[Rfam]
RNA sequence: AUCAUUGUUUUCUAGGGUUCCGCGGUCGAAUGGCCGGUCAGGUCCGAGAGAAGACGCACGGCUUCGCGGCCGUGUCCACGGAGGGAUAAAAGCCCGGGAGGA
Numbered sequence: 001a002u003c004a005u006u007g008u009u010u011u012c013u014a015g016g017g018u019u020c021c022g023c024g025g026u027c028g029a030a031u032g033g034c035c036g037g038u039c040a041g042g043u044c045c046g047a048g049a050g051a052a053g054a055c056g057c058a059c060g061g062c063u064u065c066g067c068g069g070c071c072g073u074g075u076c077c078a079c080g081g082a083g084g085g086a087u088a089a090a091a092g093c094c095c096g097g098g099a100g101g102a
Stems, first nucleotide, its partner, number of pairs: 007055006015045002020042002022039001023036005056075008077097001079100001083095003

The record is a 102-nucleotide RNA from Paenibacillus methanolicus, which matches "Guanidine-I riboswitch aptamer" in Rfam. Pairs were carried over by alignment from the consensus structure.